[Rfam]
RNA: Purine riboswitch aptamer
Organism: Oceanobacillus iheyensis
RNA sequence: AAACCUUAUAUAUAGUUUUUUCAUAUAAUCGCGGGGAUAUGGCCUGCAAGUUUCUACCGGUUUACCGUAAAUGAACCGACUAUGGAAAAGCGGAAAAUUCGA
Numbered sequence: 001a002a003a004c005c006u007u008a009u010a011u012a013u014a015g016u017u018u019u020u021u022c023a024u025a026u027a028a029u030c031g032c033g034g035g036g037a038u039a040u041g042g043c044c045u046g047c048a049a050g051u052u053u054c055u056a057c058c059g060g061u062u063u064a065c066c067g068u069a070a071a072u073g074a075a076c077c078g079a080c081u082a083u084g085g086a087a088a089a090g091c092g093g094a095a096a097a098u099u100c101g102a
Stems, first nucleotide, its partner, number of pairs: 018088008029049001031047005058078007